Rfam assigns this 117-nucleotide RNA sequence from Brevibacillus sp. WF146 to the family "SAM riboswitch aptamer (S box leader)".

[Rfam]
RNA sequence: CUCUUAUGAAGAGAGGUGGAGGGACUGGCCCUGUGAAGCCUCGGCAACCUAAACGAACAUUUGUGGUGCCAAAUCCAACGGAUCGAUUCCGCUAGGUUCGAUUCCGAAAGAUAAGAG
Numbered sequence: 001c002u003c004u005u006a007u008g009a010a011g012a013g014a015g016g017u018g019g020a021g022g023g024a025c026u027g028g029c030c031c032u033g034u035g036a037a038g039c040c041u042c043g044g045c046a047a048c049c050u051a052a053a054c055g056a057a058c059a060u061u062u063g064u065g066g067u068g069c070c071a072a073a074u075c076c077a078a079c080g081g082a083u084c085g086a087u088u089c090c091g092c093u094a095g096g097u098u099c100g101a102u103u104c105c106g107a108a109a110g111a112u113a114a115g116a117g
Stems, first nucleotide, its partner, number of pairs: 001117007013042005021031003026077003043070004048066002050063004074109001079106004
The base pairs follow the family's consensus structure, which is taken from published work.